mir-81 microRNA precursor family: a 90-nucleotide RNA from Caenorhabditis nigoni. The literature on the family includes a 2001 paper in Science by Lau et al., "An abundant class of tiny RNAs with probable regulatory roles in Caenorhabditis elegans". NCBI's taxonomy places the organism under Eukaryota, Protostomia, Chromadorea, Rhabditidae, Caenorhabditis. Clan: mir-81 clan. Rfam 15.1 lists 68 matches to the family in 54 species.
RNA sequence: GUUCUUCUAGCGACAGGUUUUCGCUGUGAUCUGCAGAGUUCCAUAUAGAAUACAUCUGAGAUCAUCGUGAAAGCCAGUUGCUUAACAGAG
Number, nucleotide and partner (000 for none) at each position: 001g000002u000003u000004c000005u000006u000007c000008u000009a082010g081011c080012g079013a000014c000015a000016g075017g074018u073019u072020u071021u070022c069023g068024c067025u000026g000027u064028g063029a062030u061031c060032u059033g000034c000035a057036g056037a055038g051039u050040u000041c000042c000043a000044u000045a000046u000047a000048g000049a000050a039051u038052a000053c000054a000055u037056c036057u035058g000059a032060g031061a030062u029063c028064a027065u000066c000067g024068u023069g022070a021071a020072a019073g018074c017075c016076a000077g000078u000079u012080g011081c010082u009083u000084a000085a000086c000087a000088g000089a000090g000